Shown here is a 50-nucleotide RNA sequence from Actinobacillus delphinicola, a member of the family "L31-Gammaproteobacteria ribosomal protein leader". The base pairs follow the family's consensus structure, which is taken from published work. By type it is a cis-regulatory leader. The organism belongs to Actinobacillus, within Bacteria.
RNA sequence: CACUCGGUGCUAAAUUCGGUUUUAGAGAGCGGAGUGGCUUCUUAAGAGGU
Numbered sequence: 001c002a003c004u005c006g007g008u009g010c011u012a013a014a015u016u017c018g019g020u021u022u023u024a025g026a027g028a029g030c031g032g033a034g035u036g037g038c039u040u041c042u043u044a045a046g047a048g049g050u
Base pairs, nucleotide, nucleotide: 001036002035003034004033005032007030008029010025011024012023013022014021